The family of this 66-nucleotide sequence from Bacillus sp. FJAT-50079 is "Bacillaceae-1 RNA". By type it is a small RNA.

[Rfam]
RNA sequence: CUUUAAGGAUCGUCGACUUAGACCGCCACGUCCUGUGGGAACGUCGACGCACCAACAUCCUGUUGG
Dot-bracket structure: ..........(((((((........((((.....))))....)))))))..(((((.....)))))
NCBI's taxonomy places the organism under Bacteria, Bacilli, Caryophanales, Bacillaceae, Bacillus.